[Rfam]
This 163-nucleotide RNA from Halopolyspora algeriensis belongs to the Rfam family "c-di-AMP riboswitch aptamer (ydaO/yuaA leader)". NCBI's taxonomy places the organism under Bacteria, Bacillati, Actinomycetota, Actinomycetes, Halopolyspora.
RNA sequence: GGGCUCCUACCCCCGAACGAAAACAGGACCGGACAGGGGCGGGGGAACCACCAUUGGGCGCCCCGACGCCCUAGGGGUGAAGCCGGCUCGACGAGCCGGCCGGGUUGUCCCCGAACAGCCCGAACCCGACAGCUAACUUCGCAGGCGCGGUAGGAGAGAGGGA
Numbered sequence: 001g002g003g004c005u006c007c008u009a010c011c012c013c014c015g016a017a018c019g020a021a022a023a024c025a026g027g028a029c030c031g032g033a034c035a036g037g038g039g040c041g042g043g044g045g046a047a048c049c050a051c052c053a054u055u056g057g058g059c060g061c062c063c064c065g066a067c068g069c070c071c072u073a074g075g076g077g078u079g080a081a082g083c084c085g086g087c088u089c090g091a092c093g094a095g096c097c098g099g100c101c102g103g104g105u106u107g108u109c110c111c112c113g114a115a116c117a118g119c120c121c122g123a124a125c126c127c128g129a130c131a132g133c134u135a136a137c138u139u140c141g142c143a144g145g146c147g148c149g150g151u152a153g154g155a156g157a158g159a160g161g162g163a
Stems, first nucleotide, its partner, number of pairs: 004147001006145002011038003039142006049074001075127003083099004102121004